[Rfam]
RNA sequence: AUCCUGCCGCCGCCGGAUCCAGGCCACUCACCCGUGCACGGCAGGAGCGGGGGACCCGAAGGCACGACGCCGACUCCGGUCCCACCGGAGCGGCUUGGGGUGCAGUCGCCUCACGGCGGCCGGGCAGCUCCAGCCCGAACCCGACAGCUCACCUCGCAGGCGCCGGAGAGGAAUC
Numbered sequence: 001a002u003c004c005u006g007c008c009g010c011c012g013c014c015g016g017a018u019c020c021a022g023g024c025c026a027c028u029c030a031c032c033c034g035u036g037c038a039c040g041g042c043a044g045g046a047g048c049g050g051g052g053g054a055c056c057c058g059a060a061g062g063c064a065c066g067a068c069g070c071c072g073a074c075u076c077c078g079g080u081c082c083c084a085c086c087g088g089a090g091c092g093g094c095u096u097g098g099g100g101u102g103c104a105g106u107c108g109c110c111u112c113a114c115g116g117c118g119g120c121c122g123g124g125c126a127g128c129u130c131c132a133g134c135c136c137g138a139a140c141c142c143g144a145c146a147g148c149u150c151a152c153c154u155c156g157c158a159g160g161c162g163c164c165g166g167a168g169a170g171g172a173a174u175c
Stems, first nucleotide, its partner, number of pairs: 011162004018046003047157006057097002098142003106119004122136004
The family of this 175-nucleotide RNA sequence from Streptomyces indicus is "c-di-AMP riboswitch aptamer (ydaO/yuaA leader)". The family has 106 seed sequences and 7,607 matches in Rfam 15.1. Its family is annotated with regulation of gene expression and cyclic-di-AMP binding in the Gene Ontology. Taxonomically the source falls in Streptomyces (Bacteria, Bacillati, Kitasatosporales, Streptomycetaceae).